[Rfam]
RNA: Small nucleolar RNA SNORA57
RNA sequence: CCACUAAUUCUUGGCAUGUGUAGUUUUGUAGCUCAGCUGUCACAUGAAUGUGAAUGUGGAAUAUAAAAAUGUCAGCCGUCUUCGGAGCUGAAGUCUCUUGUUGCUUCAGAUUCUUCCUCAAUGUCUGACACAUGC
Numbered sequence: 001c002c003a004c005u006a007a008u009u010c011u012u013g014g015c016a017u018g019u020g021u022a023g024u025u026u027u028g029u030a031g032c033u034c035a036g037c038u039g040u041c042a043c044a045u046g047a048a049u050g051u052g053a054a055u056g057u058g059g060a061a062u063a064u065a066a067a068a069a070u071g072u073c074a075g076c077c078g079u080c081u082u083c084g085g086a087g088c089u090g091a092a093g094u095c096u097c098u099u100g101u102u103g104c105u106u107c108a109g110a111u112u113c114u115u116c117c118u119c120a121a122u123g124u125c126u127g128a129c130a131c132a133u134g135c
Stems, first nucleotide, its partner, number of pairs: 001059004015046006021039004073127003077123001088109007